[Rfam]
RNA: sul1 RNA
RNA sequence: CUUGGACUCGGCGCCCCUGGGCUGCCGGGUGGCUAUCCCGUCCGCCGAUCCGUCGGGAAACU
Numbered sequence: 001c002u003u004g005g006a007c008u009c010g011g012c013g014c015c016c017c018u019g020g021g022c023u024g025c026c027g028g029g030u031g032g033c034u035a036u037c038c039c040g041u042c043c044g045c046c047g048a049u050c051c052g053u054c055g056g057g058a059a060a061c062u
Base pairs, nucleotide, nucleotide: 006030007029008028009027010026011025013022014021015020037057038056039055040054042052